[Rfam]
Nucleotides: 134
Base pairs, nucleotide, nucleotide: 002133003132004131005130
Number, partner (000 for none) and nucleotide at each position: 001000a002133a003132g004131g005130c006000u007000g008000u009000g010000a011000u012000g013000a014000u015000u016000g017000g018000u019000g020000c021000a022000g023000g024000g025000g026000u027000a028000u029000g030000g031000c032000c033000c034000u035000c036000c037000a038000c039000u040000a041000a042000g043000u044000c045000a046000u047000g048000g049000g050000a051000g052000c053000u054000g055000a056000a057000u058000g059000u060000a061000u062000g063000u064000g065000u066000u067000u068000c069000u070000c071000c072000g073000u074000u075000g076000u077000c078000c079000u080000g081000c082000a083000u084000g085000u086000g087000g088000u089000g090000g091000g092000u093000u094000g095000a096000u097000g098000g099000c100000a101000a102000g103000c104000a105000c106000u107000u108000c109000a110000u111000g112000a113000g114000a115000c116000u117000u118000g119000c120000c121000u122000g123000a124000c125000u126000c127000a128000g129000a130005g131004c132003u133002u134000g
A member of the RNA family "Small nucleolar RNA SNORD94" from Erinaceus europaeus, 134 nucleotides long.
The family's RNA type in Rfam is C/D-box small nucleolar RNA.
Taxonomically the source falls in Erinaceus (Eukaryota, Bilateria, Boreoeutheria, Laurasiatheria).